[Rfam]
RNA sequence: GCGGAUAGAUGUCCGCUGGGAUGUAGCCGUAUAGGCUGAACCGAAAA
Numbered sequence: 001g002c003g004g005a006u007a008g009a010u011g012u013c014c015g016c017u018g019g020g021a022u023g024u025a026g027c028c029g030u031a032u033a034g035g036c037u038g039a040a041c042c043g044a045a046a047a
Stems, first nucleotide, its partner, number of pairs: 001016005017043003025037004
RNA: eL15-Euryarchaeota ribosomal protein leader